[Rfam]
RNA sequence: CAGCAUUGCUGAAACCCCCCGGCAACCUUGGAUGUAGGUGCAGGGACAAGAAGGAAUGCAAAAUCACAACAGCGAGAGCUCCAAUGUGCAGGGCACGUGUUUCCUUGUAUAAUUUCACUUCUUGCACAUAU
Numbered sequence: 001c002a003g004c005a006u007u008g009c010u011g012a013a014a015c016c017c018c019c020c021g022g023c024a025a026c027c028u029u030g031g032a033u034g035u036a037g038g039u040g041c042a043g044g045g046a047c048a049a050g051a052a053g054g055a056a057u058g059c060a061a062a063a064u065c066a067c068a069a070c071a072g073c074g075a076g077a078g079c080u081c082c083a084a085u086g087u088g089c090a091g092g093g094c095a096c097g098u099g100u101u102u103c104c105u106u107g108u109a110u111a112a113u114u115u116c117a118c119u120u121c122u123u124g125c126a127c128a129u130a131u
Stems, first nucleotide, its partner, number of pairs: 003059004010050001018045003022041001024039001026037001063131002072125006085111007093103001094099001
Dot-bracket structure: ..((((...(.......(((.(.(.(..........).).).)))....).....))))...((.......((((((.......(((((((.((....)...).)))))))........))))))....))